This 71-nucleotide RNA sequence from Tsuneonella aeria belongs to the Rfam family "tRNA". A search with the family's covariance model found it, with a score of 57 bits. Taxonomically the source falls in Tsuneonella (Bacteria, Pseudomonadota, Alphaproteobacteria, Erythrobacteraceae). From the family's description: Transfer RNA (tRNA) molecules are approximately 80 nucleotides in length. It is annotated as a transfer RNA.
RNA sequence: GCGGCCUUGGCCGAGUGGUUAGGCACCGGGCUUCCAUCCCGUUCACAGGAGUUCGAUCCUCCUAGGCCGCU
Numbered sequence: 001g002c003g004g005c006c007u008u009g010g011c012c013g014a015g016u017g018g019u020u021a022g023g024c025a026c027c028g029g030g031c032u033u034c035c036a037u038c039c040c041g042u043u044c045a046c047a048g049g050a051g052u053u054c055g056a057u058c059c060u061c062c063u064a065g066g067c068c069g070c071u
Stems, first nucleotide, its partner, number of pairs: 001070007010024003027041004047063005